[Rfam]
Rfam assigns this 89-nucleotide RNA sequence from Catellatospora sp. IY07-71 to the family "Glycine riboswitch aptamer".
The pairing is the family consensus, mapped onto this sequence.
About the family: This family represents the bacterial glycine riboswitch.
It scores 60 bits against the family's covariance model.

RNA sequence: CACACCCGUGUGGGAGAGACCGCGUGCAGCGGCGCCGAAGGGGCAAUUCCUCCCCGGAACCUCUCAGGCACCCGGACCACAACGGGCAU
Numbered sequence: 001c002a003c004a005c006c007c008g009u010g011u012g013g014g015a016g017a018g019a020c021c022g023c024g025u026g027c028a029g030c031g032g033c034g035c036c037g038a039a040g041g042g043g044c045a046a047u048u049c050c051u052c053c054c055c056g057g058a059a060c061c062u063c064u065c066a067g068g069c070a071c072c073c074g075g076a077c078c079a080c081a082a083c084g085g086g087c088a089u
Stems, first nucleotide, its partner, number of pairs: 006084001009081005020032004034069003037065002041063003047057002